[Rfam]
RNA sequence: AAAGAGCCCCACAAAGAAAGGAGUAGCGACCCACUUUGGCUGCGAGUCUUGCGCGAUGUCCGGCGACGGGCAUGGCGAAGCGUAGACAGCAGAAUCAGCGGGCUGGGCUAAUGAGCUUCGAAAAGUACCUCCCGGACGCCGACCUUGUUCAUAUAAGGGGAAGGCAACACGGUGCGUCUCGUAAAUCGCGAGAGGCGCGCCGGUCCGGCGUAGUCAGUGAACC
Numbered sequence: 001a002a003a004g005a006g007c008c009c010c011a012c013a014a015a016g017a018a019a020g021g022a023g024u025a026g027c028g029a030c031c032c033a034c035u036u037u038g039g040c041u042g043c044g045a046g047u048c049u050u051g052c053g054c055g056a057u058g059u060c061c062g063g064c065g066a067c068g069g070g071c072a073u074g075g076c077g078a079a080g081c082g083u084a085g086a087c088a089g090c091a092g093a094a095u096c097a098g099c100g101g102g103c104u105g106g107g108c109u110a111a112u113g114a115g116c117u118u119c120g121a122a123a124a125g126u127a128c129c130u131c132c133c134g135g136a137c138g139c140c141g142a143c144c145u146u147g148u149u150c151a152u153a154u155a156a157g158g159g160g161a162a163g164g165c166a167a168c169a170c171g172g173u174g175c176g177u178c179u180c181g182u183a184a185a186u187c188g189c190g191a192g193a194g195g196c197g198c199g200c201c202g203g204u205c206c207g208g209c210g211u212a213g214u215c216a217g218u219g220a221a222c223c
Stems, first nucleotide, its partner, number of pairs: 012038005020032002024191001026189002040092004046087004050082002052077003056073007112217001113215001115214003119210002132208006138165003143159004170202011
Dot-bracket structure: ...........(((((...((..[.[[...)).))))).((((..(((((((((.(((((((....))))))).)))...)).)))).))))...................((.(((.((...........(((((((((..((((.........))))...)))....(((((((((((.......]].]))))))))))))))))))).)))).)......